Clostridiales-1 RNA: a 170-nucleotide RNA from Firmicutes bacterium CAG:424. The base pairs follow the family's consensus structure, which is taken from published work. The source organism's lineage runs through Bacteria, Bacillati and Bacillota. Rfam classes the family as a small RNA. Rfam 15.1 lists 1,172 matches to the family in 137 species.
[Rfam]
RNA sequence: AAAUGCCAGGGUCAAAAGGUCAUAAACCACGUUGUGCUUGCACAUAAGUGAUUUUAUGCCUUUAUGACCCGCCCUAAAAUGAGGAUAAAAGUGGAGCGUAAGCUUCACGAUAUCCGAAUUUAGGGUAGAAUUGUGAGAGCACAAAGUGCGGAACAAUUCGUCAGGCAUGU
Dot-bracket structure: (.(((((..((((..((((.((((((.(((..((((....))))...))).).))))).))))..))))...(((.((((..((((....(((((((....)))))))...))))..)))).)))..(((((((....((((...))))...)))))))....))))).)